Small nucleolar RNA SNORD25: an 85-nucleotide sequence. By type it is a C/D-box small nucleolar RNA. The base pairs follow the family's consensus structure, which was predicted with PFOLD. Gene Ontology terms of the family: RNA processing and nucleolus. It is one of the family's seed sequences.

RNA sequence: AAGAACAGUGAUGAGUCAGUUUACAGACCUGUAAUGAUUGCGGUAAUGAUCGCAUUAUUAUGAACAUCUAAGGGACUGAGUUCUU
Numbered sequence: 001a002a003g004a005a006c007a008g009u010g011a012u013g014a015g016u017c018a019g020u021u022u023a024c025a026g027a028c029c030u031g032u033a034a035u036g037a038u039u040g041c042g043g044u045a046a047u048g049a050u051c052g053c054a055u056u057a058u059u060a061u062g063a064a065c066a067u068c069u070a071a072g073g074g075a076c077u078g079a080g081u082u083c084u085u
Base pairs, nucleotide, nucleotide: 002084003083004082005081006080